Overview:
Shown here is an 82-nucleotide RNA sequence from Clostridium estertheticum, a member of the family "ZMP/ZTP riboswitch aptamer (pfl RNA motif)". Pairs were carried over by alignment from the consensus structure, which is taken from published work.

[Rfam]
RNA sequence: AAUUAAUCAUGUAACUGGCGGAAAUGGUGUUUACCAUAGGGAGCAUGACUAAAGAAAGAUAUCGACCGUCUGGGUAAAAUAA
Numbered sequence: 001a002a003u004u005a006a007u008c009a010u011g012u013a014a015c016u017g018g019c020g021g022a023a024a025u026g027g028u029g030u031u032u033a034c035c036a037u038a039g040g041g042a043g044c045a046u047g048a049c050u051a052a053a054g055a056a057a058g059a060u061a062u063c064g065a066c067c068g069u070c071u072g073g074g075u076a077a078a079a080u081a082a
Stems, first nucleotide, its partner, number of pairs: 003052003007048006015040002017070005024037004060076004
Dot-bracket structure: ..(((.((((((..(([[[[[..((((......)))).))..)))))).))).......((((..]]]]]..))))......